Description
Bacterial large subunit ribosomal RNA: a 451-nucleotide part of an RNA from Robinsoniella sp. RHS. Lineage of the source: Bacteria > Clostridia > Lachnospirales > Lachnospiraceae > Robinsoniella.

RNA sequence: CUCCUCGAAAUAGCUUUAGGGCUAGCCUCAUAUUAGUCUAACGGAGGUAGAGCACUGAAUUUCCUAGGGGGCGUCAAAGCUUACCAAAGAAUAUCAAACUCCGAAUGCCGUAUAGAUGAUGUAUGGGAGUCAGACUGCACGAGAUAAGUUGGGCAGUCAAAAGGGAAAGAGCCCAGACCUCCAGCUAAGGUCCCAAAGUGUGUGUUAAGUGGAAAAGGAUGUGGGAUUUCGAAGACAACUAGGAUGUUGGCUCAGAAGCAGCCAUACAUUAAAAGAGUGCGUAAUAGCUCACUAGUCGAGAGGUCCUGCGCCGAAAAUGUCCGGGGCUGAAACACAACACCGAAGCUGAGGAAUGGAAGUACAUCUACGGGUGUACCCAUUGGUAGAGGAGCAUUCUUAACUGAGACGAAGCUGUACCGUAAGGAGCAGUGGAUUGUUAAGAAGAGAGAAU
Numbered sequence: 001c002u003c004c005u006c007g008a009a010a011u012a013g014c015u016u017u018a019g020g021g022c023u024a025g026c027c028u029c030a031u032a033u034u035a036g037u038c039u040a041a042c043g044g045a046g047g048u049a050g051a052g053c054a055c056u057g058a059a060u061u062u063c064c065u066a067g068g069g070g071g072c073g074u075c076a077a078a079g080c081u082u083a084c085c086a087a088a089g090a091a092u093a094u095c096a097a098a099c100u101c102c103g104a105a106u107g108c109c110g111u112a113u114a115g116a117u118g119a120u121g122u123a124u125g126g127g128a129g130u131c132a133g134a135c136u137g138c139a140c141g142a143g144a145u146a147a148g149u150u151g152g153g154c155a156g157u158c159a160a161a162a163g164g165g166a167a168a169g170a171g172c173c174c175a176g177a178c179c180u181c182c183a184g185c186u187a188a189g190g191u192c193c194c195a196a197a198g199u200g201u202g203u204g205u206u207a208a209g210u211g212g213a214a215a216a217g218g219a220u221g222u223g224g225g226a227u228u229u230c231g232a233a234g235a236c237a238a239c240u241a242g243g244a245u246g247u248u249g250g251c252u253c254a255g256a257a258g259c260a261g262c263c264a265u266a267c268a269u270u271a272a273a274a275g276a277g278u279g280c281g282u283a284a285u286a287g288c289u290c291a292c293u294a295g296u297c298g299a300g301a302g303g304u305c306c307u308g309c310g311c312c313g314a315a316a317a318u319g320u321c322c323g324g325g326g327c328u329g330a331a332a333c334a335c336a337a338c339a340c341c342g343a344a345g346c347u348g349a350g351g352a353a354u355g356g357a358a359g360u361a362c363a364u365c366u367a368c369g370g371g372u373g374u375a376c377c378c379a380u381u382g383g384u385a386g387a388g389g390a391g392c393a394u395u396c397u398u399a400a401c402u403g404a405g406a407c408g409a410a411g412c413u414g415u416a417c418c419g420u421a422a423g424g425a426g427c428a429g430u431g432g433a434u435u436g437u438u439a440a441g442a443a444g445a446g447a448g449a450a451u
Stems, first nucleotide, its partner, number of pairs: 001391006011024005026129001027127007035120001036117005041111004050102001051100002056096003061091003067085002069082004133158006140151003163174003178351004183347003189341003198338001201336005217312002221309010238296005244269003249263003270274001275290001279288002352381005359374004392446001394443007402436003411430005417424002